RNA sequence: GAGAACUCUUAGUUCGAGAGGUGGAAUGAUAGGGUAACGCCUUGAAACGCCCCUUUAAUACUCCGACAUGCGACAAGUAGAUAUGUGUAAUCGAAAGUGGUAUGAAGCUCGGUGAAGACGGCAGAAAUUUAUCGUAGUAGUGGUAACACCAACCGAAAGGGCGGUGGAGGCAUCGUCCAUAGAUUAUAUGCCGGAAGUCGUAAAA
Numbered sequence: 001g002a003g004a005a006c007u008c009u010u011a012g013u014u015c016g017a018g019a020g021g022u023g024g025a026a027u028g029a030u031a032g033g034g035u036a037a038c039g040c041c042u043u044g045a046a047a048c049g050c051c052c053c054u055u056u057a058a059u060a061c062u063c064c065g066a067c068a069u070g071c072g073a074c075a076a077g078u079a080g081a082u083a084u085g086u087g088u089a090a091u092c093g094a095a096a097g098u099g100g101u102a103u104g105a106a107g108c109u110c111g112g113u114g115a116a117g118a119c120g121g122c123a124g125a126a127a128u129u130u131a132u133c134g135u136a137g138u139a140g141u142g143g144u145a146a147c148a149c150c151a152a153c154c155g156a157a158a159g160g161g162c163g164g165u166g167g168a169g170g171c172a173u174c175g176u177c178c179a180u181a182g183a184u185u186a187u188a189u190g191c192c193g194g195a196a197g198u199c200g201u202a203a204a205a
Stems, first nucleotide, its partner, number of pairs: 018052001020051004031043004053197004063112004067104005073098002078093001080091001119193005127184006133155002140149002159178008
Dot-bracket structure: .................(.((((.......((((.....))))....)))))((((......(((((((((.((...(.(..........).)...)).)))))....))))......(((((...((((((((.....((......))....))...((((((((....))))))))))))))....)))))))))........

The record is a 205-nucleotide RNA from Lentibacillus amyloliquefaciens, which matches "Group II catalytic intron D1-D4-5" in Rfam. Rfam's curators write: Group II introns are found in rRNA, tRNA and mRNA of organelles in fungi, plants and protists, and also in mRNA in bacteria. The source organism's lineage runs through Bacteria, Bacillati, Caryophanales, Bacillaceae and Lentibacillus. A reference for the family is Bonen and Vogel (2001), "The ins and outs of group II introns", Trends Genet.